RNA sequence: AAAGAGGACAGUUUUACAUUGUUCAUAUCUAACGUUUAACCAUCCGUUUUAUUUAAAAAAAUUUUAUGAUUAGUAUUUUUGUUGUUAUUUUUACGUGUGACUAAUUUUUUUUUAAUUUGUAAUAUUUUUUAAAUGAAACGGAUGAUUAAACAUUGAAUACGAAAAUCUACAAUUACACUUAAU
Numbered sequence: 001a002a003a004g005a006g007g008a009c010a011g012u013u014u015u016a017c018a019u020u021g022u023u024c025a026u027a028u029c030u031a032a033c034g035u036u037u038a039a040c041c042a043u044c045c046g047u048u049u050u051a052u053u054u055a056a057a058a059a060a061a062u063u064u065u066a067u068g069a070u071u072a073g074u075a076u077u078u079u080u081g082u083u084g085u086u087a088u089u090u091u092u093a094c095g096u097g098u099g100a101c102u103a104a105u106u107u108u109u110u111u112u113u114a115a116u117u118u119g120u121a122a123u124a125u126u127u128u129u130u131a132a133a134u135g136a137a138a139c140g141g142a143u144g145a146u147u148a149a150a151c152a153u154u155g156a157a158u159a160c161g162a163a164a165a166u167c168u169a170c171a172a173u174u175a176c177a178c179u180u181a182a183u
Stems, first nucleotide, its partner, number of pairs: 028157001030155003035150005041144012
This 183-nucleotide sequence from Oryza glumipatula belongs to the Rfam family "MIR812 microRNA precursor family". It scores 84 bits against the family's covariance model. The base pairs follow the family's consensus structure, which was predicted with RNAalifold. Gene Ontology terms of the family: miRNA-mediated post-transcriptional gene silencing and RISC complex. Rfam 15.1 lists 57,451 matches to the family in 24 species.